Description
The record is a 62-nucleotide RNA from Channa argus, which matches "Selenocysteine insertion sequence 1" in Rfam. By type it is a cis-regulatory element. The organism belongs to Channa, within Eukaryota.
[Rfam]
RNA sequence: GUGUGUUAAUGACAGUCUGACUUUAAACUCUACAGAGGAAGCAGACUUGAUACUUAACACUC
Numbered sequence: 001g002u003g004u005g006u007u008a009a010u011g012a013c014a015g016u017c018u019g020a021c022u023u024u025a026a027a028c029u030c031u032a033c034a035g036a037g038g039a040a041g042c043a044g045a046c047u048u049g050a051u052a053c054u055u056a057a058c059a060c061u062c
Stems, first nucleotide, its partner, number of pairs: 001062001003060003014047006022039002028037003